[Rfam]
RNA: Tombusvirus 5' UTR
Organism: Tombusvirus cymbidii
RNA sequence: GAAAUCCUCCAGGACACCUCGACCUAGGUUGUGUAUCCGGUGAUUUGCGUACUGUUGCUUUGCGUAGAGGAUUUCUCUCCUGUUCACUACAUAUCAGGGGUUUGAAGGCAGGGUCUACCUUUCGGGGGGAUAAAUUGUAACUUCCUGCAAAUAAGCAAAAUG
Numbered sequence: 001g002a003a004a005u006c007c008u009c010c011a012g013g014a015c016a017c018c019u020c021g022a023c024c025u026a027g028g029u030u031g032u033g034u035a036u037c038c039g040g041u042g043a044u045u046u047g048c049g050u051a052c053u054g055u056u057g058c059u060u061u062g063c064g065u066a067g068a069g070g071a072u073u074u075c076u077c078u079c080c081u082g083u084u085c086a087c088u089a090c091a092u093a094u095c096a097g098g099g100g101u102u103u104g105a106a107g108g109c110a111g112g113g114u115c116u117a118c119c120u121u122u123c124g125g126g127g128g129g130a131u132a133a134a135u136u137g138u139a140a141c142u143u144c145c146u147g148c149a150a151a152u153a154a155g156c157a158a159a160a161u162g
Base pairs, nucleotide, nucleotide: 001075002074003073004072005071006070007069008068009067012038013037014036046066047065048064049063050062077100078099079098080097081096108148109147110146111145112144114130115129116128118127119126120125